[Rfam]
A member of the RNA family "Plastid-psbA-3 3UTR RNA" from Helianthus decapetalus, 58 nucleotides long. Plastid psbA-3 is a non-coding RNA (ncRNA) present in plastids. It was identified in inverted repeat sequences in the 3 prime untranslate region (3UTR) of photosystem II quinone-binding protein (psbA). The family is grouped with related families in Rfam's "Plastid-psbA 3UTR RNA clan". The family's consensus secondary structure was predicted with LocARNA. It is one of the family's seed sequences. The organism belongs to Helianthus, within Eukaryota. The family's RNA type in Rfam is cis-regulatory element.

RNA sequence: AAAAGGAGCAAUAGCUUCCCUCUUGAUAAAACAAGAGAGCAUUAUUGCUCCUUUUUUU
Numbered sequence: 001a002a003a004a005g006g007a008g009c010a011a012u013a014g015c016u017u018c019c020c021u022c023u024u025g026a027u028a029a030a031a032c033a034a035g036a037g038a039g040c041a042u043u044a045u046u047g048c049u050c051c052u053u054u055u056u057u058u
Stems, first nucleotide, its partner, number of pairs: 002054013020037006